[Rfam]
RNA: Purine riboswitch aptamer
RNA sequence: UUAUGAUUAAUAAGGAAACCCCAUAUAUGCAGAAGAAUUGGCUUCUGCGUCUCUACCAGGACACCGUAAAUGUCUGGACUAUGCGGGAAAGCAACUUAUGG
Numbered sequence: 001u002u003a004u005g006a007u008u009a010a011u012a013a014g015g016a017a018a019c020c021c022c023a024u025a026u027a028u029g030c031a032g033a034a035g036a037a038u039u040g041g042c043u044u045c046u047g048c049g050u051c052u053c054u055a056c057c058a059g060g061a062c063a064c065c066g067u068a069a070a071u072g073u074c075u076g077g078a079c080u081a082u083g084c085g086g087g088a089a090a091g092c093a094a095c096u097u098a099u100g101g
Stems, first nucleotide, its partner, number of pairs: 019086002022083004029048007057077001059075005